[Rfam]
Nucleotides: 109
Stems, first nucleotide, its partner, number of pairs: 001018004006014003025087001027085005
Number, partner (000 for none) and nucleotide at each position: 001018g002017g003016g004015g005000a006014c007013c008012u009000u010000c011000g012008g013007g014006g015004c016003c017002c018001u019000a020000c021000a022000u023000c024000c025087g026000a027085u028084g029083g030082c031081c032000g033000g034000a035000u036000c037000g038000c039000u040000c041000c042000g043000g044000c045000c046000g047000a048000c049000a050000c051000c052000a053000g054000g055000c056000g057000g058000a059000c060000a061000g062000g063000c064000g065000g066000g067000c068000c069000c070000g071000a072000g073000g074000g075000c076000a077000c078000g079000c080000a081031g082030g083029c084028c085027g086000c087025c088000a089000u090000c091000u092000g093000a094000a095000a096000a097000c098000g099000g100000a101000a102000g103000a104000c105000a106000g107000g108000a109000a